[Rfam]
RNA sequence: UUUCCCAUUUGACUCACAUUUUCUCCUAAUAAUAGAUUAUAGGGGCUAUGCUAUGGGGUAGAUUAAAAUUGCCCUGAUUUGAAGAGGGGAGAUGUUUUUGUGUCCUCCUCCUAUAUGAAAUGGCUGAACAGAAAAAA
Numbered sequence: 001u002u003u004c005c006c007a008u009u010u011g012a013c014u015c016a017c018a019u020u021u022u023c024u025c026c027u028a029a030u031a032a033u034a035g036a037u038u039a040u041a042g043g044g045g046c047u048a049u050g051c052u053a054u055g056g057g058g059u060a061g062a063u064u065a066a067a068a069u070u071g072c073c074c075u076g077a078u079u080u081g082a083a084g085a086g087g088g089g090a091g092a093u094g095u096u097u098u099u100g101u102g103u104c105c106u107c108c109u110c111c112u113a114u115a116u117g118a119a120a121u122g123g124c125u126g127a128a129c130a131g132a133a134a135a136a137a
Stems, first nucleotide, its partner, number of pairs: 004057004014045002017042001071124003089112001091110002
Rfam assigns this 137-nucleotide RNA sequence from Molossus molossus to the family "Small nucleolar RNA SNORA29". A reference for the family is Huttenhofer et al. (2001), "RNomics: an experimental approach that identifies 201 candidates for novel, small, non-messenger RNAs in mouse", EMBO J. About the family: ACA29 is a member of the H/ACA class of snoRNA that guide the sites of modification of uridines to pseudouridines. The family is grouped with related families in Rfam's "SNORA20 clan".